[Rfam]
RNA sequence: UACGGUCAGCAGGGGUUUCUUUCGGCCUUCAGCUGUUUAAUAGACUGUAGGCCGGCGGAAACUACUUGCUGACCCUA
Numbered sequence: 001u002a003c004g005g006u007c008a009g010c011a012g013g014g015g016u017u018u019c020u021u022u023c024g025g026c027c028u029u030c031a032g033c034u035g036u037u038u039a040a041u042a043g044a045c046u047g048u049a050g051g052c053c054g055g056c057g058g059a060a061a062c063u064a065c066u067u068g069c070u071g072a073c074c075c076u077a
Base pairs, nucleotide, nucleotide: 005073006072007071008070010068011067012066013065014063015062016061017060018059019058020057022055023054024053025052026051027050028049030047031046032045

mir-2796 microRNA precursor family: a 77-nucleotide RNA sequence from Chrysodeixis includens. The organism belongs to Chrysodeixis, within Eukaryota. Its family is annotated with miRNA-mediated post-transcriptional gene silencing and RISC complex in the Gene Ontology.